[Rfam]
RNA sequence: UGGUAGAUGCACCCUGAUGUACGCUUCCCGGCUUGCGAGUCAAGCUGGGAUUUUUUUU
Number, nucleotide and partner (000 for none) at each position: 001u000002g013003g012004u011005a000006g000007a000008u000009g000010c000011a004012c003013c002014c000015u000016g000017a000018u000019g000020u000021a000022c000023g000024c000025u000026u050027c049028c048029c047030g046031g045032c044033u043034u042035g041036c000037g000038a000039g000040u000041c035042a034043a033044g032045c031046u030047g029048g028049g027050a026051u000052u000053u000054u000055u000056u000057u000058u000
Nitrogen stress-induced RNA 1: a 58-nucleotide sequence from Planktothricoides sp. SR001.
Pairs were carried over by alignment from the consensus structure.
On this family, see Ionescu et al., J Mol Biol 2010: "Heterocyst-specific transcription of NsiR1, a non-coding RNA encoded in a tandem array of direct repeats in cyanobacteria".
By type it is a small RNA.
The family has 17 seed sequences and 962 matches in Rfam 15.1.